[Rfam]
RNA: mir-181 microRNA precursor family
RNA sequence: UGUCCUCGGUUAACAUUCAACGCUGUCGGUGAGUUUUGAGCUUCUGACAAACCAUCGACCGUUGACUGUACCCUGAGGGCA
Number, nucleotide and partner (000 for none) at each position: 001u081002g080003u079004c078005c077006u076007c075008g074009g000010u000011u000012a000013a000014c068015a067016u000017u065018c064019a063020a062021c061022g060023c000024u000025g059026u058027c057028g056029g055030u054031g053032a000033g052034u051035u050036u049037u000038g000039a000040g000041c000042u000043u000044c000045u000046g000047a000048c000049a036050a035051a034052c033053c031054a030055u029056c028057g027058a026059c025060c022061g021062u020063u019064g018065a017066c000067u015068g014069u000070a000071c000072c000073c000074u008075g007076a006077g005078g004079g003080c002081a001